[Rfam]
The family of this 367-nucleotide RNA from Chitinophaga niabensis is "Bacterial RNase P class A". Taxonomically the source falls in Chitinophaga (Bacteria, Bacteroidota, Chitinophagales, Chitinophagaceae).

Nucleotides: 367
Stems, first nucleotide, its partner, number of pairs: 001363009011352001012316007020039008044350003048347005053217004060251004065213005070084005085109001087106008110208002115206002117202003131148002133144004156174006177196005183190002221273004232263005243255004280299008
Number, partner (000 for none) and nucleotide at each position: 001363c002362g003361g004360c005359a006358a007357a008356g009355c010000c011352g012316c013315g014314c015313u016312a017311u018310c019000g020039g021038c022037u023036u024035u025034u026033u027032g028000g029000a030000a031000a032027c033026a034025a035024a036023a037022g038021g039020c040000a041000g042000g043000a044350a045349a046348g047000u048347c049346c050345g051344g052343a053217c054216a055215g056214c057000a058000u059000a060251g061250g062249g063248c064000a065213a066212c067211g068210c069209a070084c071083c072082a073081c074080c075000u076000a077000a078000c079000g080074g081073g082072u083071g084070g085109g086000g087106c088105u089104u090103u091102u092101c093100g094099c095000u096000u097000c098000g099094g100093u101092g102091a103090a104089g105088a106087g107000a108000a109085c110208a111207g112000a113000c114000a115206g116205u117202g118201c119200c120000a121000c122000a123000g124000a125000a126000a127000a128000u129000a130000a131148c132147c133144g134143c135142c136141u137000u138000c139000c140000g141136g142135g143134g144133u145000a146000a147132g148131g149000g150000u151000g152000a153000a154000a155000a156174u157173g158172u159171g160170g161169g162000g163000u164000a165000a166000g167000a168000g169161c170160c171159c172158a173157c174156g175000g176000c177196a178195g179194a180193a181192c182000c183190g184189g185000g186000u187000a188000a189184c190183c191000u192181g193180u194179u195178c196177u197000g198000c199000g200119g201118g202117u203000a204000a205116a206115c207111c208110u209069u210068g211067c212066g213065u214056g215055c216054u217053g218000a219000a220000a221273u222272g223271c224270c225000a226000u227000g228000u229000a230000a231000a232263c233262g234261g235260u236259c237000g238000u239000u240000u241000g242000a243255g244254g245253g246252c247000u248063g249062c250061c251060c252246g253245c254244c255243c256000g257000a258000u259236g260235a261234c262233c263232g264000a265000g266000g267000g268000u269000a270224g271223g272222c273221a274000g275000a276000u277000a278000c279000a280299g281298g282297u283296a284295u285294u286293c287292a288000g289000u290000g291000a292287u293286g294285a295284a296283u297282g298281c299280c300000g301000c302000a303000g304000a305000u306000a307000a308000a309000u310018g311017a312016u313015a314014g315013c316012g317000g318000u319000u320000c321000c322000g323000u324000u325000g326000c327000a328000g329000a330000a331000c332000g333000g334000g335000a336000u337000a338000c339000a340000g341000a342000a343052u344051c345050c346049g347048g348046c349045u350044u351000a352011u353000a354000a355009g356008c357007u358006u359005u360004g361003c362002c363001g364000g365000g366000u367000g